[Rfam]
RNA sequence: UAAAUUAAACUCAUAAACCACACACGUGCCGACACAUGAUUCGGGGUGCCCCAAGUUUCGCUUAAGCGAUGCUGAUAUGGGUCGAGUCAUGGAGUACGUGGAGGCUUAAC
Numbered sequence: 001u002a003a004a005u006u007a008a009a010c011u012c013a014u015a016a017a018c019c020a021c022a023c024a025c026g027u028g029c030c031g032a033c034a035c036a037u038g039a040u041u042c043g044g045g046g047u048g049c050c051c052c053a054a055g056u057u058u059c060g061c062u063u064a065a066g067c068g069a070u071g072c073u074g075a076u077a078u079g080g081g082u083c084g085a086g087u088c089a090u091g092g093a094g095u096a097c098g099u100g101g102a103g104g105c106u107u108a109a110c
Stems, first nucleotide, its partner, number of pairs: 023100007035091009048082004

This 110-nucleotide RNA sequence from Ferrimonas lipolytica belongs to the Rfam family "t44 RNA". Taxonomically the source falls in Ferrimonas (Bacteria, Pseudomonadati, Pseudomonadota, Alteromonadales). The match comes from Rfam's covariance-model search (74 bits). A reference for the family is Tjaden et al. (2002), "Transcriptome analysis of Escherichia coli using high-density oligonucleotide probe arrays", Nucleic Acids Res.